[Rfam]
RNA sequence: UGGGAGUUUGAUACAUGACACAAAACGGCUGUUGAUGUGUUCAUCACUUAACUCCCUAAAUGAAUAUAGCUCUCUGAUGACUGUAUUCUGCCCAAGAACAGCCAUACAGACAGAUACGGAGCUUACAGAU
Number, nucleotide and partner (000 for none) at each position: 001u000002g056003g055004g054005a053006g052007u051008u000009u000010g000011a000012u000013a000014c000015a044016u043017g042018a041019c000020a000021c000022a036023a000024a000025a000026c000027g000028g000029c000030u000031g000032u000033u000034g000035a000036u022037g000038u000039g000040u000041u018042c017043a016044u015045c000046a000047c000048u000049u000050a000051a007052c006053u005054c004055c003056c002057u000058a000059a000060a000061u000062g000063a000064a000065u000066a000067u000068a123069g122070c121071u120072c119073u118074c000075u000076g000077a000078u000079g000080a000081c109082u108083g107084u000085a000086u104087u000088c000089u000090g000091c000092c000093c000094a000095a000096g000097a000098a000099c000100a000101g000102c000103c000104a086105u000106a000107c083108a082109g081110a000111c000112a000113g000114a000115u000116a000117c000118g073119g072120a071121g070122c069123u068124u000125a000126c000127a000128g000129a000130u000
Shown here is a 130-nucleotide sequence from Stylophora pistillata, a member of the family "Small Cajal body specific RNA 8". Gene Ontology terms of the family: nucleolus, Cajal body and RNA processing. scaRNAs are a specific class of small nuclear RNAs which localise to the Cajal bodies and guide the modification of RNA polymerase II transcribed spliceosomal RNAs U1, U2, U4, U5 and U12. U92 belong to the H/ACA box class of guide RNAs as it has the predicted hairpin-hinge-hairpin-tail structure, conserved H/ACA-box motifs and is found associated with GAR1. It scores 62 bits against the family's covariance model. The family has 22 seed sequences and 955 matches in Rfam 15.1. On this family, see Darzacq et al., EMBO J 2002: "Cajal body-specific small nuclear RNAs: a novel class of 2'-O-methylation and pseudouridylation guide RNAs". The family's RNA type in Rfam is small Cajal body RNA.